[Rfam]
RNA sequence: AUUUAGAGCCGUCACAUCAUUACGGUCGAAUCAUGUCAGGCCAGAAAUGGAGCAGCAUUAAGACUAUUUAAUGAGUGUGAUGGUUUUUUAUUGCAU
Numbered sequence: 001a002u003u004u005a006g007a008g009c010c011g012u013c014a015c016a017u018c019a020u021u022a023c024g025g026u027c028g029a030a031u032c033a034u035g036u037c038a039g040g041c042c043a044g045a046a047a048u049g050g051a052g053c054a055g056c057a058u059u060a061a062g063a064c065u066a067u068u069u070a071a072u073g074a075g076u077g078u079g080a081u082g083g084u085u086u087u088u089u090a091u092u093g094c095a096u
Base pairs, nucleotide, nucleotide: 004090005089006088007087008086009083010082011081012080013079014078015075017074018073019072020071021070022069024065025064026063027062033058034057035056036055041050042049043048
Notes: Rfam assigns this 96-nucleotide RNA from Mycoplasmoides pneumoniae to the family "Bacterial small signal recognition particle RNA". It is annotated as a non-coding RNA gene. The sequence is in the family's curated seed alignment. Lineage of the source: Bacteria > Bacillati > Mycoplasmatota > Mycoplasmoides > Mycoplasmoides pneumoniae. The family's consensus secondary structure is taken from published work.